[Rfam]
RNA sequence: UAUAACGGAAUCACUUUUUUUUAGUCGUUUGUGCUACAUGCUAUUCGAAGGGAGUAUUACCACUUUCAACAUUGUGGUUAUUGUUCAACGUCAAUGUGGGCAUAAAAAAAGCGCCCGGAGGCGCUUUUUAUGACGU
Numbered sequence: 001u002a003u004a005a006c007g008g009a010a011u012c013a014c015u016u017u018u019u020u021u022u023a024g025u026c027g028u029u030u031g032u033g034c035u036a037c038a039u040g041c042u043a044u045u046c047g048a049a050g051g052g053a054g055u056a057u058u059a060c061c062a063c064u065u066u067c068a069a070c071a072u073u074g075u076g077g078u079u080a081u082u083g084u085u086c087a088a089c090g091u092c093a094a095u096g097u098g099g100g101c102a103u104a105a106a107a108a109a110a111g112c113g114c115c116c117g118g119a120g121g122c123g124c125u126u127u128u129u130a131u132g133a134c135g136u
Stems, first nucleotide, its partner, number of pairs: 108127008